[Rfam]
Rfam assigns this 73-nucleotide RNA from Sorangiineae bacterium NIC37A_2 to the family "tRNA".
From the family's description: Transfer RNA (tRNA) molecules are approximately 80 nucleotides in length. Their secondary structure includes four short double-helical elements and three loops (D, anti-codon, and T loops).
Nucleotides: 073
Stems, first nucleotide, its partner, number of pairs: 001072007010025004027043005049065005
Number, partner (000 for none) and nucleotide at each position: 001072a002071g003070g004069g005068g006067u007066a008000u009000a010025g011024c012023u013022c014000a015000g016000u017000c018000g019000g020000u021000a022013g023012a024011g025010c026000a027043g028042c029041g030040g031039a032000u033000u034000c035000c036000a037000a038000a039031u040030c041029c042028g043027c044000a045000g046000g047000u048000c049065g050064g051063g052062a053061g054000u055000u056000c057000g058000a059000g060000c061053c062052u063051c064050u065049c066007u067006g068005c069004c070003c071002c072001u073000g
NCBI's taxonomy places the organism under Bacteria, Pseudomonadati, Myxococcia, Myxococcales, Sorangiineae.